Shown here is an 86-nucleotide RNA sequence from Crypturellus undulatus, a member of the family "mir-425 microRNA precursor family".
Gene Ontology terms of the family: miRNA-mediated post-transcriptional gene silencing and RISC complex.
The family's consensus secondary structure was predicted with RNAalifold.
RNA sequence: AGACGGCUUUGGAAUGACACGAUCACUCCCGCUGAGCGGGGCCGCCGCAGAGCCAUCGGGAAUGUCGUGUCUGUCCAAAGCUUUUU
Numbered sequence: 001a002g003a004c005g006g007c008u009u010u011g012g013a014a015u016g017a018c019a020c021g022a023u024c025a026c027u028c029c030c031g032c033u034g035a036g037c038g039g040g041g042c043c044g045c046c047g048c049a050g051a052g053c054c055a056u057c058g059g060g061a062a063u064g065u066c067g068u069g070u071c072u073g074u075c076c077a078a079a080g081c082u083u084u085u086u
Base pairs, nucleotide, nucleotide: 006081007080009078010077011076012075016071017070018069019068020067021066022065023064027061028060029059030058031057033055034054036053037052